[Rfam]
RNA sequence: ACUCUAGUAUUGGCUCUAAUCCACAUGUGUUGAGGUGGAUUGUGGUGUAAAUUAGUUUAAUUUACACCCCAAUACAUCUCAAUACAUGUGGAUUAAGGCCAAUACUAGA
Numbered sequence: 001a002c003u004c005u006a007g008u009a010u011u012g013g014c015u016c017u018a019a020u021c022c023a024c025a026u027g028u029g030u031u032g033a034g035g036u037g038g039a040u041u042g043u044g045g046u047g048u049a050a051a052u053u054a055g056u057u058u059a060a061u062u063u064a065c066a067c068c069c070c071a072a073u074a075c076a077u078c079u080c081a082a083u084a085c086a087u088g089u090g091g092a093u094u095a096a097g098g099c100c101a102a103u104a105c106u107a108g109a
Base pairs, nucleotide, nucleotide: 004108005107006106007105008104009103010102011101012100013099014098017095018094019093020092021091022090023089024088025087026086027085028084029083030082031081032080035077036076037075039073040072041071042070045067046066047065
MIR5565 microRNA precursor family: a 109-nucleotide RNA sequence from Zea mays. The source organism's lineage runs through Eukaryota, Mesangiospermae, Petrosaviidae, Poaceae and Zea. Pairs were carried over by alignment from the consensus structure, which was predicted with RNAalifold. Gene Ontology terms of the family: RISC complex and miRNA-mediated post-transcriptional gene silencing.